[Rfam]
The family of this 101-nucleotide RNA sequence from Streptococcus pluranimalium is "Streptococcus sRNA SpF25". It is annotated as a small RNA. Taxonomically the source falls in Streptococcus (Bacteria, Bacillati, Bacilli, Lactobacillales). A reference for the family is Mann et al. (2012), "Control of virulence by small RNAs in Streptococcus pneumoniae", PLoS Pathog.
RNA sequence: GCAUGAGAUAGCCUUUCUAAAGUGUUUUUUUGUCAAUUCUAUUUUAUCAAGACUAUCGCAAGCAUGCAAAAAGCAACGACAAAAAUCGUUGCUUUUUUUAU
Numbered sequence: 001g002c003a004u005g006a007g008a009u010a011g012c013c014u015u016u017c018u019a020a021a022g023u024g025u026u027u028u029u030u031u032g033u034c035a036a037u038u039c040u041a042u043u044u045u046a047u048c049a050a051g052a053c054u055a056u057c058g059c060a061a062g063c064a065u066g067c068a069a070a071a072a073g074c075a076a077c078g079a080c081a082a083a084a085a086u087c088g089u090u091g092c093u094u095u096u097u098u099u100a101u
Base pairs, nucleotide, nucleotide: 004060005059007057008056009055010054011053016052017051018050024047025046030041032039064101065100066099068097069096070095071094072093073092074091075090076089077088078087079086